[Rfam]
RNA sequence: GGGAUAUGAUGAGUUUCUUAUUGGUCCGUGUUUCUGAUUUAACCGUGACCGACAUACCUUUACCAAACUCUGAUCUC
Numbered sequence: 001g002g003g004a005u006a007u008g009a010u011g012a013g014u015u016u017c018u019u020a021u022u023g024g025u026c027c028g029u030g031u032u033u034c035u036g037a038u039u040u041a042a043c044c045g046u047g048a049c050c051g052a053c054a055u056a057c058c059u060u061u062a063c064c065a066a067a068c069u070c071u072g073a074u075c076u077c
Stems, first nucleotide, its partner, number of pairs: 001077004
RNA: Small nucleolar RNA SNORD18